Rfam assigns this 52-nucleotide RNA from Chenggangzhangella methanolivorans to the family "DUF3800-VI RNA". The organism belongs to Chenggangzhangella, within Bacteria. It is annotated as a cis-regulatory element. The match comes from Rfam's covariance-model search (42 bits).
RNA sequence: AAGCUGAGAGCGCUGAUACGUCGGUGCGUUGAACGAUUGCUUCACUCGGCUU
Numbered sequence: 001a002a003g004c005u006g007a008g009a010g011c012g013c014u015g016a017u018a019c020g021u022c023g024g025u026g027c028g029u030u031g032a033a034c035g036a037u038u039g040c041u042u043c044a045c046u047c048g049g050c051u052u
Stems, first nucleotide, its partner, number of pairs: 001052008010027006030044004